[Rfam]
RNA sequence: GGGGGGAGGCCGGAUCCUGGGCUGUGUCCUGGUGCCCUGUGCCCCGGGGCCUGCACUGUUGGAUUCGUGCUCCCAGCCGCACAGCCCCCU
Numbered sequence: 001g002g003g004g005g006g007a008g009g010c011c012g013g014a015u016c017c018u019g020g021g022c023u024g025u026g027u028c029c030u031g032g033u034g035c036c037c038u039g040u041g042c043c044c045c046g047g048g049g050c051c052u053g054c055a056c057u058g059u060u061g062g063a064u065u066c067g068u069g070c071u072c073c074c075a076g077c078c079g080c081a082c083a084g085c086c087c088c089c090u
Stems, first nucleotide, its partner, number of pairs: 001090006009082001011079003016076001019073003023069004027063003030058006039051001041050003
Dot-bracket structure: ((((((..(.(((..(..(((.(((((((((((((...(.(((....)))).))))))..)))..)))).)))..))))..)..))))))

The family of this 90-nucleotide RNA sequence from Nyctereutes procyonoides is "mir-8799 microRNA precursor family". The family's consensus secondary structure was predicted with RNAalifold. The match comes from Rfam's covariance-model search (95 bits). Taxonomically the source falls in Nyctereutes (Eukaryota, Craniata, Teleostomi, Dipnotetrapodomorpha). Rfam 15.1 lists 20,638 matches to the family in 5 species.